Shown here is a 170-nucleotide RNA from Streptomyces hundungensis, a member of the family "c-di-AMP riboswitch aptamer (ydaO/yuaA leader)".

RNA sequence: GACGCUUAUGCGCCGUAGGCAGGAGCGGGGGACCCAAGGUAAGUGCCGGGCCCGGCAGUUCACAGGACUGCCGCCAACGGCUUGGGGUGAAGACGGGCGCUUCGGCGCUCGGCCGGGCAGCUCACGCCCGAACCCGACAGCUCACCUCGCAGGCGUCGGUGAGGAGAAUU
Numbered sequence: 001g002a003c004g005c006u007u008a009u010g011c012g013c014c015g016u017a018g019g020c021a022g023g024a025g026c027g028g029g030g031g032a033c034c035c036a037a038g039g040u041a042a043g044u045g046c047c048g049g050g051c052c053c054g055g056c057a058g059u060u061c062a063c064a065g066g067a068c069u070g071c072c073g074c075c076a077a078c079g080g081c082u083u084g085g086g087g088u089g090a091a092g093a094c095g096g097g098c099g100c101u102u103c104g105g106c107g108c109u110c111g112g113c114c115g116g117g118c119a120g121c122u123c124a125c126g127c128c129c130g131a132a133c134c135c136g137a138c139a140g141c142u143c144a145c146c147u148c149g150c151a152g153g154c155g156u157c158g159g160u161g162a163g164g165a166g167a168a169u170u
Stems, first nucleotide, its partner, number of pairs: 003155004011023001025150006035084004085135003094111005115129004
Its family is annotated with cyclic-di-AMP binding and regulation of gene expression in the Gene Ontology.